RNA sequence: UAGCCGGUGAAGAUCCGGUCGCGGGAGGGGCCAAGCCUCCGCGUAGCUUGGAUACCUGCGUACGGUGAAAUCCGUGCGUAGAAGCGUAUCGAUAAAAGUACCUAUUAGAGACAGGGCGAGCAACCUGCCAGGCCGUAACAUGA
Numbered sequence: 001u002a003g004c005c006g007g008u009g010a011a012g013a014u015c016c017g018g019u020c021g022c023g024g025g026a027g028g029g030g031c032c033a034a035g036c037c038u039c040c041g042c043g044u045a046g047c048u049u050g051g052a053u054a055c056c057u058g059c060g061u062a063c064g065g066u067g068a069a070a071u072c073c074g075u076g077c078g079u080a081g082a083a084g085c086g087u088a089u090c091g092a093u094a095a096a097a098g099u100a101c102c103u104a105u106u107a108g109a110g111a112c113a114g115g116g117c118g119a120g121c122a123a124c125c126u127g128c129c130a131g132g133c134c135g136u137a138a139c140a141u142g143a
Stems, first nucleotide, its partner, number of pairs: 020043005051090005056081006065072001098117001101115003105111001120136002